The record is a 75-nucleotide sequence from Dissostichus mawsoni, which matches "Small nucleolar RNA SNORD83" in Rfam.
RNA sequence: GCCACAUGAUGACAUAUAGAUGCCGCAGCCUCCGGGCCGUGAGGACCUCUCAUCUAUCACCCUAGUCUGAUGGCU
Dot-bracket structure: ((((.......................(((...).)).................................)))).
NCBI's taxonomy places the organism under Eukaryota, Actinopterygii, Euteleosteomorpha, Acanthomorphata, Dissostichus. The literature on the family includes a 2000 paper in Nucleic Acids Res by Jady and Kiss, "Characterisation of the U83 and U84 small nucleolar RNAs: two novel 2'-O-ribose methylation guide RNAs that lack complementarities to ribosomal RNAs". Rfam links the family to the GO terms nucleolus and RNA processing.